[Rfam]
RNA sequence: AUGCCCUGUGACGAUAAAAAUACGUAUUAUUCUGAGGGAAAAAACCUACUGGCAGUCUCAUCUCCUAUUCCCUCCAUCCUGCUCUCCUCUCCUAUGCUACAUCUCUCUACAACUGGUAUCUGGUCUGUUGACUGAUUAUGAGAUAUGAGGGCAU
Numbered sequence: 001a002u003g004c005c006c007u008g009u010g011a012c013g014a015u016a017a018a019a020a021u022a023c024g025u026a027u028u029a030u031u032c033u034g035a036g037g038g039a040a041a042a043a044a045c046c047u048a049c050u051g052g053c054a055g056u057c058u059c060a061u062c063u064c065c066u067a068u069u070c071c072c073u074c075c076a077u078c079c080u081g082c083u084c085u086c087c088u089c090u091c092c093u094a095u096g097c098u099a100c101a102u103c104u105c106u107c108u109a110c111a112a113c114u115g116g117u118a119u120c121u122g123g124u125c126u127g128u129u130g131a132c133u134g135a136u137u138a139u140g141a142g143a144u145a146u147g148a149g150g151g152c153a154u
Base pairs, nucleotide, nucleotide: 001154002153003152004151005150006149035073036072037071038070039069040068
Dot-bracket structure: ((((((............................((((((...........................))))))...........................................................................))))))

The record is a 154-nucleotide RNA from Coregonus sp. 'balchen', which matches "Small nucleolar RNA SNORD97" in Rfam. Pairs were carried over by alignment from the consensus structure, which was predicted with WAR. The family's RNA type in Rfam is C/D-box small nucleolar RNA. For this family Rfam cites "Identification of 13 novel human modification guide RNAs" (Vitali et al., Nucleic Acids Res, 2003).